[Rfam]
RNA sequence: GGAGGUUCUCAGGUGAUGCACCCUGGAACCAGAGAGGAGGGAGCCUGAUUCUGGGGUGUGUUACCCGAGAACCACC
Numbered sequence: 001g002g003a004g005g006u007u008c009u010c011a012g013g014u015g016a017u018g019c020a021c022c023c024u025g026g027a028a029c030c031a032g033a034g035a036g037g038a039g040g041g042a043g044c045c046u047g048a049u050u051c052u053g054g055g056g057u058g059u060g061u062u063a064c065c066c067g068a069g070a071a072c073c074a075c076c
Base pairs, nucleotide, nucleotide: 002075005072006071007070008069009068010067012065013064014063015062016061017060019058020057021056022055023054025052026051027050028049030047031046032045
Rfam assigns this 76-nucleotide RNA sequence from Myotis lucifugus to the family "mir-9223 microRNA precursor family". The match comes from Rfam's covariance-model search (56 bits). Taxonomically the source falls in Myotis (Eukaryota, Craniata, Amniota, Vespertilionidae).